[Rfam]
RNA sequence: GCCGGUCCUCGGUAGUGGUUCUCCGACACACCCUCGUCCGGGUUCUUCGGAGGACUUCGAUCGAUGGCCGGC
Numbered sequence: 001g002c003c004g005g006u007c008c009u010c011g012g013u014a015g016u017g018g019u020u021c022u023c024c025g026a027c028a029c030a031c032c033c034u035c036g037u038c039c040g041g042g043u044u045c046u047u048c049g050g051a052g053g054a055c056u057u058c059g060a061u062c063g064a065u066g067g068c069c070g071g072c
Stems, first nucleotide, its partner, number of pairs: 001072007009064005017056010028046001
Dot-bracket structure: (((((((.(((((...((((((((((.(.................)))))))))))...))))).)))))))